[Rfam]
RNA: skipping-rope RNA
RNA sequence: ACAGCCUGAGGACCGGAAAACCUGCUGCCGGCCCGCCUUGACAUACCCUCCCAACCAACAAGGUGCGAUGUGGGGAAGGCAGUCCCACCAGGCUGU
Numbered sequence: 001a002c003a004g005c006c007u008g009a010g011g012a013c014c015g016g017a018a019a020a021c022c023u024g025c026u027g028c029c030g031g032c033c034c035g036c037c038u039u040g041a042c043a044u045a046c047c048c049u050c051c052c053a054a055c056c057a058a059c060a061a062g063g064u065g066c067g068a069u070g071u072g073g074g075g076a077a078g079g080c081a082g083u084c085c086c087a088c089c090a091g092g093c094u095g096u
Stems, first nucleotide, its partner, number of pairs: 001096008011032001013031004022082005034065007070088005
Dot-bracket structure: ((((((((..(.((((.....[[[[[.))))).(((((((..................)))))))....(((((...]]]]].)))))))))))))